[Rfam]
RNA sequence: AGAGAGGACUGGACGGUCGCCGGUUUGACUCGCGAGGGUCUAACGGGAGGAAAGUCCGGGCGUCGUAGGACAGGGUGGUGGGUAACGCCCACCGGUCGUGAGACCAGGGAAAGUGCAACAGAAAGUAAACCGCCGCGCAAGCGGUAAGGGUGAAACGGUGCGGUAAGAGCGCACCAGCAGGCGGGGCGACUCGUCUGGCUUGGUAAACCCCGCCCGACGCAAGGCCAAACAGGGAGCAGAAUCGGUCCGAUUCGUUACGACUUCCGGGUAGGCUGCUAGAGGCGGCGAGCAAUCGUCGUCGUAGAGGAAUGAUCGUCGCGUGGCGCAAGCUGCGUACAAAACCCGGCUUAUAGGUCCUCUCUUACG
Numbered sequence: 001a002g003a004g005a006g007g008a009c010u011g012g013a014c015g016g017u018c019g020c021c022g023g024u025u026u027g028a029c030u031c032g033c034g035a036g037g038g039u040c041u042a043a044c045g046g047g048a049g050g051a052a053a054g055u056c057c058g059g060g061c062g063u064c065g066u067a068g069g070a071c072a073g074g075g076u077g078g079u080g081g082g083u084a085a086c087g088c089c090c091a092c093c094g095g096u097c098g099u100g101a102g103a104c105c106a107g108g109g110a111a112a113g114u115g116c117a118a119c120a121g122a123a124a125g126u127a128a129a130c131c132g133c134c135g136c137g138c139a140a141g142c143g144g145u146a147a148g149g150g151u152g153a154a155a156c157g158g159u160g161c162g163g164u165a166a167g168a169g170c171g172c173a174c175c176a177g178c179a180g181g182c183g184g185g186g187c188g189a190c191u192c193g194u195c196u197g198g199c200u201u202g203g204u205a206a207a208c209c210c211c212g213c214c215c216g217a218c219g220c221a222a223g224g225c226c227a228a229a230c231a232g233g234g235a236g237c238a239g240a241a242u243c244g245g246u247c248c249g250a251u252u253c254g255u256u257a258c259g260a261c262u263u264c265c266g267g268g269u270a271g272g273c274u275g276c277u278a279g280a281g282g283c284g285g286c287g288a289g290c291a292a293u294c295g296u297c298g299u300c301g302u303a304g305a306g307g308a309a310u311g312a313u314c315g316u317c318g319c320g321u322g323g324c325g326c327a328a329g330c331u332g333c334g335u336a337c338a339a340a341a342c343c344c345g346g347c348u349u350a351u352a353g354g355u356c357c358u359c360u361c362u363u364a365c366g
Stems, first nucleotide, its partner, number of pairs: 001362010011351001012317007020047002023044003027040004052349003056346005061219004068253003073215005078092005093107001094105004108210002113208002115204002130149002132145005157175006177199001178197008223274004233265004244258001248254001281300008
RNA: Bacterial RNase P class A